[Rfam]
RNA sequence: AAGAACCCUAAUGGGAAUUGAACCUACGAAUUCACCAAUUAUGAGUUGGGCGCUUUAACCAUUUAGCCAUGGAUGC
Numbered sequence: 001a002a003g004a005a006c007c008c009u010a011a012u013g014g015g016a017a018u019u020g021a022a023c024c025u026a027c028g029a030a031u032u033c034a035c036c037a038a039u040u041a042u043g044a045g046u047u048g049g050g051c052g053c054u055u056u057a058a059c060c061a062u063u064u065a066g067c068c069a070u071g072g073a074u075g076c
Base pairs, nucleotide, nucleotide: 003076005074007072008071012026013025014024015023041070042069043068045067046066047065048064049063050062052060
The record is a 76-nucleotide RNA from Capsicum annuum, which matches "Plastid-ycf2 5UTR RNA" in Rfam. NCBI's taxonomy places the organism under Eukaryota, Embryophyta, Gunneridae, Solanoideae, Capsicum. The literature on the family includes a 2023 paper in Plant Commun by Richter et al., "Retrograde signaling in plants: A critical review focusing on the GUN pathway and beyond". A search with the family's covariance model found it, with a score of 69 bits. The family's RNA type in Rfam is cis-regulatory element. Rfam describes the family as follows. Plastid ycf2 is a non-coding RNA (ncRNA) recognised in plastids. It was found in the prime untranslated region (5UTR) of ycf2 genes, it presents a tRNA-like motif which suggests it can be involved in mRNA maturation, particularly involved in defining the precise 5' end of the transcript. Pairs were carried over by alignment from the consensus structure, which was predicted with LocARNA.